[Rfam]
RNA sequence: UUGGAAGAUUUUAAUACUUCAACUUGUAUACUUGGAGAAUUUGAAGAUUUCAACUUGUAUACUUGGAGAUUUUUGAAGAUUUUUGAA
Numbered sequence: 001u002u003g004g005a006a007g008a009u010u011u012u013a014a015u016a017c018u019u020c021a022a023c024u025u026g027u028a029u030a031c032u033u034g035g036a037g038a039a040u041u042u043g044a045a046g047a048u049u050u051c052a053a054c055u056u057g058u059a060u061a062c063u064u065g066g067a068g069a070u071u072u073u074u075g076a077a078g079a080u081u082u083u084u085g086a087a
Stems, first nucleotide, its partner, number of pairs: 001085001003083004009077003013073002017068005025059004032053006
A member of the RNA family "MIR8024 microRNA precursor family" from Solanum commersonii, 87 nucleotides long. The organism belongs to Solanum, within Eukaryota. Pairs were carried over by alignment from the consensus structure, which was predicted with RNAalifold.